[Rfam]
RNA sequence: UUGUCAUGUUAUACCUCUCAGGAAGGUUAAUGUGAAAAUGCGGGCCGGUGUUGCGAGCACCGGCCUGUGUGUCU
Numbered sequence: 001u002u003g004u005c006a007u008g009u010u011a012u013a014c015c016u017c018u019c020a021g022g023a024a025g026g027u028u029a030a031u032g033u034g035a036a037a038a039u040g041c042g043g044g045c046c047g048g049u050g051u052u053g054c055g056a057g058c059a060c061c062g063g064c065c066u067g068u069g070u071g072u073c074u
Stems, first nucleotide, its partner, number of pairs: 004035003009030001013027004038070012
Rfam assigns this 74-nucleotide RNA sequence from Vibrio ostreae to the family "Plasmid transferred anti-sense RNA". NCBI's taxonomy places the organism under Bacteria, Pseudomonadati, Gammaproteobacteria, Vibrionales, Vibrio. Rfam links the family to the GO terms mRNA binding and negative regulation of translation.